Shown here is a 110-nucleotide RNA from Streptomyces sp. SID7982, a member of the family "TPP riboswitch aptamer (THI element)". The match comes from Rfam's covariance-model search (59 bits). Its family is annotated with thiamine pyrophosphate binding in the Gene Ontology.
[Rfam]
RNA sequence: UGGACCAAUCGCGGGAGCCCGGCGGACCGGGCUGAGAGGGAGGCUGCGGCCUCCGACCGUACGAACCUGAUCCGGGUCAUGCCGGCGAAGGGAGGGGCUGGACGCCCAUG
Numbered sequence: 001u002g003g004a005c006c007a008a009u010c011g012c013g014g015g016a017g018c019c020c021g022g023c024g025g026a027c028c029g030g031g032c033u034g035a036g037a038g039g040g041a042g043g044c045u046g047c048g049g050c051c052u053c054c055g056a057c058c059g060u061a062c063g064a065a066c067c068u069g070a071u072c073c074g075g076g077u078c079a080u081g082c083c084g085g086c087g088a089a090g091g092g093a094g095g096g097g098c099u100g101g102a103c104g105c106c107c108a109u110g
Base pairs, nucleotide, nucleotide: 006100007099009097010096011060012059013058014057017032018031019030020029021028039054040053041052042051043050066091067090068089072085073084074083075082